Rfam assigns this 91-nucleotide RNA sequence to the family "ZMP/ZTP riboswitch aptamer (pfl RNA motif)". The base pairs follow the family's consensus structure, which is taken from published work.

[Rfam]
RNA sequence: CACACAGGCCGUGACUGGCGCUGGGGUGGAGAACCACCGGGGAGCGGCCUGACCAAAGGGUCGAUGCAUGCCGCGCGCCUGGGCGAAUGGU
Numbered sequence: 001c002a003c004a005c006a007g008g009c010c011g012u013g014a015c016u017g018g019c020g021c022u023g024g025g026g027u028g029g030a031g032a033a034c035c036a037c038c039g040g041g042g043a044g045c046g047g048c049c050u051g052a053c054c055a056a057a058g059g060g061u062c063g064a065u066g067c068a069u070g071c072c073g074c075g076c077g078c079c080u081g082g083g084c085g086a087a088u089g090g091u
Stems, first nucleotide, its partner, number of pairs: 005051008015041002017079005026037004069085004
The literature on the family includes a 2015 paper in Nat Struct Mol Biol by Jones and Ferre-D'Amare, "Recognition of the bacterial alarmone ZMP through long-distance association of two RNA subdomains".